The record is a 67-nucleotide RNA sequence from Xenopus tropicalis, which matches "mir-34 microRNA precursor family" in Rfam. The source organism's lineage runs through Eukaryota, Opisthokonta, Bilateria, Chordata and Silurana. For this family Rfam cites "Vertebrate microRNA genes" (Lim et al., Science, 2003). The family has 113 seed sequences and 2,256 matches in Rfam 15.1. Rfam links the family to the GO terms RISC complex and miRNA-mediated post-transcriptional gene silencing.

RNA sequence: UUCAGGCAGUGUAGUUAGCUGAUUGUGUUAUAUCAAAUUUGCAAUCACUAGCUAAACUACCAUAAAA
Dot-bracket structure: ((..((.(((.(((((((.((((((((............))))))))))))))).))).))..))..
Notes:
Pairs were carried over by alignment from the consensus structure, which was predicted with RNAalifold.